[Rfam]
RNA sequence: AAUUUCGGGUAAUCGCGGUCUAGCUAGACUAGGCUGAGGAAAGUCCAUGCUCGCACAGGCUGAAACGUCUGUAGUGUUCGUGCUUAGUGAAACCAUAAGCUAAGGCCUUCAGUUUAUCUGAAGUGACGGCAGAAAAAAGGACUAAGGCGAAAGCUAUGUCUGAGUAUUCUUGAAAGUGCCACAGUGACGAAGCAAUGUUGGAAACAUCAUUGGUGGAACGGGUAAACCCCUCGAGCGAGCAACCCAAACAUUGGUAGGGGCACUUUUCCUAGGGAAUAAAACUGAUGGAAGAGGCGUAAUCGCAGACAGAUGAUUACCUCCGGAUAAUGAUAUUCCUGGUCUUUAUCCGAGACAGAACAUGGCUUAUAGAA
Numbered sequence: 001a002a003u004u005u006c007g008g009g010u011a012a013u014c015g016c017g018g019u020c021u022a023g024c025u026a027g028a029c030u031a032g033g034c035u036g037a038g039g040a041a042a043g044u045c046c047a048u049g050c051u052c053g054c055a056c057a058g059g060c061u062g063a064a065a066c067g068u069c070u071g072u073a074g075u076g077u078u079c080g081u082g083c084u085u086a087g088u089g090a091a092a093c094c095a096u097a098a099g100c101u102a103a104g105g106c107c108u109u110c111a112g113u114u115u116a117u118c119u120g121a122a123g124u125g126a127c128g129g130c131a132g133a134a135a136a137a138a139g140g141a142c143u144a145a146g147g148c149g150a151a152a153g154c155u156a157u158g159u160c161u162g163a164g165u166a167u168u169c170u171u172g173a174a175a176g177u178g179c180c181a182c183a184g185u186g187a188c189g190a191a192g193c194a195a196u197g198u199u200g201g202a203a204a205c206a207u208c209a210u211u212g213g214u215g216g217a218a219c220g221g222g223u224a225a226a227c228c229c230c231u232c233g234a235g236c237g238a239g240c241a242a243c244c245c246a247a248a249c250a251u252u253g254g255u256a257g258g259g260g261c262a263c264u265u266u267u268c269c270u271a272g273g274g275a276a277u278a279a280a281a282c283u284g285a286u287g288g289a290a291g292a293g294g295c296g297u298a299a300u301c302g303c304a305g306a307c308a309g310a311u312g313a314u315u316a317c318c319u320c321c322g323g324a325u326a327a328u329g330a331u332a333u334u335c336c337u338g339g340u341c342u343u344u345a346u347c348c349g350a351g352a353c354a355g356a357a358c359a360u361g362g363c364u365u366a367u368a369g370a371a
Stems, first nucleotide, its partner, number of pairs: 004371003007367001008318007016036006041365003045362005050239005055072006078234003082230001083104006105127001106125001107123005128229002131170004139161004146155003176227002178223003193212005199206002243259003263293007294303003321349007
RNA: Bacterial RNase P class B